[Rfam]
RNA: Small nucleolar RNA SNORA33
RNA sequence: CACCAGUUAAUAAUCUCUGCUCAACUUGAAAGUGUUUUGCAGGGCAUGUUUUAAAACACUACUGGUAAACUAAAGCCACAGUACGAGCCUUGAAGAAAAUUUCUUGUCUUUGAGGUCCCAAGAGAUGGCUACAUCU
Numbered sequence: 001c002a003c004c005a006g007u008u009a010a011u012a013a014u015c016u017c018u019g020c021u022c023a024a025c026u027u028g029a030a031a032g033u034g035u036u037u038u039g040c041a042g043g044g045c046a047u048g049u050u051u052u053a054a055a056a057c058a059c060u061a062c063u064g065g066u067a068a069a070c071u072a073a074a075g076c077c078a079c080a081g082u083a084c085g086a087g088c089c090u091u092g093a094a095g096a097a098a099a100u101u102u103c104u105u106g107u108c109u110u111u112g113a114g115g116u117c118c119c120a121a122g123a124g125a126u127g128g129c130u131a132c133a134u135c136u
Stems, first nucleotide, its partner, number of pairs: 002066005016043005075129004087116007095108002